[Rfam]
RNA sequence: GGUUUUAACCCAGUAUCUCAAGGUACGUUAGGGAUUCCGACCAACGAAAGUUGUGUUGAAGUUUUUUUUGGAAAAGCCAGAUCGGGGUAUCUGAUCAGGC
Numbered sequence: 001g002g003u004u005u006u007a008a009c010c011c012a013g014u015a016u017c018u019c020a021a022g023g024u025a026c027g028u029u030a031g032g033g034a035u036u037c038c039g040a041c042c043a044a045c046g047a048a049a050g051u052u053g054u055g056u057u058g059a060a061g062u063u064u065u066u067u068u069u070g071g072a073a074a075a076g077c078c079a080g081a082u083c084g085g086g087g088u089a090u091c092u093g094a095u096c097a098g099g100c
Base pairs, nucleotide, nucleotide: 007036008035009032010031013028014027016025018023038058039057040056041055042053043052044051045050082097084095086092087091